[Rfam]
Shown here is a 136-nucleotide sequence from Streptomyces minutiscleroticus, a member of the family "Group II catalytic intron D1-D4-4". Lineage of the source: Bacteria > Actinomycetota > Actinomycetes > Kitasatosporales > Streptomyces. Rfam 15.1 lists 840 matches to the family in 506 species. The base pairs follow the family's consensus structure. It scores 86 bits against the family's covariance model. About the family: Group II introns are found in rRNA, tRNA and mRNA of organelles in fungi, plants and protists, and also in mRNA in bacteria. Rfam links the family to the GO term Group II intron splicing.
RNA sequence: CUGCCGGUGGAAGUCCGGUCUGGGUAGCUGCCAGGAGGCCCGGUAGCAGACUGGCGGCGUCGGGGGGAAACGCCCGGCGUCGAGCCCGGUGUCGAAAGCCCUGCAAGGGGGAGCAAAGCAGCGGUCCGUAGCAUCA
Numbered sequence: 001c002u003g004c005c006g007g008u009g010g011a012a013g014u015c016c017g018g019u020c021u022g023g024g025u026a027g028c029u030g031c032c033a034g035g036a037g038g039c040c041c042g043g044u045a046g047c048a049g050a051c052u053g054g055c056g057g058c059g060u061c062g063g064g065g066g067g068a069a070a071c072g073c074c075c076g077g078c079g080u081c082g083a084g085c086c087c088g089g090u091g092u093c094g095a096a097a098g099c100c101c102u103g104c105a106a107g108g109g110g111g112a113g114c115a116a117a118g119c120a121g122c123g124g125u126c127c128g129u130a131g132c133a134u135c136a
Stems, first nucleotide, its partner, number of pairs: 020043005050090005055082006064073001066071001099111004113129002